[Rfam]
Background: The record is a 182-nucleotide RNA from Agrilus planipennis, which matches "R2 RNA element" in Rfam. The family's consensus secondary structure is taken from published work. Rfam 15.1 lists 3,698 matches to the family in 74 species. It scores 40 bits against the family's covariance model. From the family's description: This family represents the 3' UTR region of the R2 retrotransposable element.
RNA sequence: ACUUAACAAGGGCAUGUCCAAAACACAGAAAAUGACUACAGUUCUAAGUGGAGACAUUGCCCUAGAACAGCUUGAAAUAGAGGGGUUUUAGUCGCUAGGUCCGAGGACUUCUUCCUCGGGAAUCCGACACUACCCAGUCGUACGGACGGCUGGGUGUCUUUUAAAGAUUUCCCCUCUUCUAC
Numbered sequence: 001a002c003u004u005a006a007c008a009a010g011g012g013c014a015u016g017u018c019c020a021a022a023a024c025a026c027a028g029a030a031a032a033u034g035a036c037u038a039c040a041g042u043u044c045u046a047a048g049u050g051g052a053g054a055c056a057u058u059g060c061c062c063u064a065g066a067a068c069a070g071c072u073u074g075a076a077a078u079a080g081a082g083g084g085g086u087u088u089u090a091g092u093c094g095c096u097a098g099g100u101c102c103g104a105g106g107a108c109u110u111c112u113u114c115c116u117c118g119g120g121a122a123u124c125c126g127a128c129a130c131u132a133c134c135c136a137g138u139c140g141u142a143c144g145g146a147c148g149g150c151u152g153g154g155u156g157u158c159u160u161u162u163a164a165a166g167a168u169u170u171c172c173c174c175u176c177u178u179c180u181a182c
Stems, first nucleotide, its partner, number of pairs: 063181004079177007091128004100120008130156001132155005